[Rfam]
RNA sequence: AUUAACGUGAAGUAACACUUAUUAACGCUAAUAGCGAUGAAGAAUUUCUUAACUAUCUCUAUUAUUUACUAUGUAGGUUACAUCAUAUGAACCUCAGGACAUUUCUCCUUCAACCGAAACUGUUUUUUACAGAUUCGUUGUUCUACGCAAUGAUCACCCCAAUCAUUGCGUAUUUUUUUGCUUAAACAUUUUA
Dot-bracket structure: ............(((.(...(((..((..........))...))).).)))...............((..(((((((((..................)................((((.((((.....)))).)))).......((((((((((.......))))))))))........))))..))))..))
Shown here is a 193-nucleotide RNA from Acinetobacter calcoaceticus, a member of the family "Aar sRNA".
The base pairs follow the family's consensus structure, which was predicted with mfold.
Rfam's curators put it in the seed alignment.
The organism belongs to Acinetobacter calcoaceticus, within Bacteria.